[Rfam]
RNA sequence: GUUUGAAAUACAGUGAUCUUUUAUUUUCCAAGCAUGUAUCAAAUUUGUUCUGUGUGGAAAAUGACUGUUGCUGAGUGUUUUGGAU
Numbered sequence: 001g002u003u004u005g006a007a008a009u010a011c012a013g014u015g016a017u018c019u020u021u022u023a024u025u026u027u028c029c030a031a032g033c034a035u036g037u038a039u040c041a042a043a044u045u046u047g048u049u050c051u052g053u054g055u056g057g058a059a060a061a062u063g064a065c066u067g068u069u070g071c072u073g074a075g076u077g078u079u080u081u082g083g084a085u
Base pairs, nucleotide, nucleotide: 001085002084003083004082005081006080008078009077010076011075
Shown here is an 85-nucleotide RNA sequence from Turnix velox, a member of the family "Small nucleolar RNA SNORD121A". Rfam links the family to the GO terms nucleolus and RNA processing. Pairs were carried over by alignment from the consensus structure, which was predicted with WAR.